A member of the RNA family "Translational regulator of tfoXVC" from Vibrio genomosp. F10, 102 nucleotides long. The source organism's lineage runs through Bacteria, Pseudomonadati, Gammaproteobacteria, Vibrionales and Vibrio. For this family Rfam cites "Identification of a chitin-induced small RNA that regulates translation of the tfoX gene, encoding a positive regulator of natural competence in Vibrio cholerae" (Yamamoto et al., J Bacteriol, 2011). The family's consensus secondary structure was predicted with WAR.
RNA sequence: AUUCCAGAGGUGGUUUGGUUCCUACCAUACCACUCCGGCAGCAAGCGAAGGUGUCAUUGACACCCGUGGUAUAGUCCCCCGGCUAUGCCACGACAUUUUUUU
Numbered sequence: 001a002u003u004c005c006a007g008a009g010g011u012g013g014u015u016u017g018g019u020u021c022c023u024a025c026c027a028u029a030c031c032a033c034u035c036c037g038g039c040a041g042c043a044a045g046c047g048a049a050g051g052u053g054u055c056a057u058u059g060a061c062a063c064c065c066g067u068g069g070u071a072u073a074g075u076c077c078c079c080c081g082g083c084u085a086u087g088c089c090a091c092g093a094c095a096u097u098u099u100u101u102u
Stems, first nucleotide, its partner, number of pairs: 009034006016027003038046002050064006065092012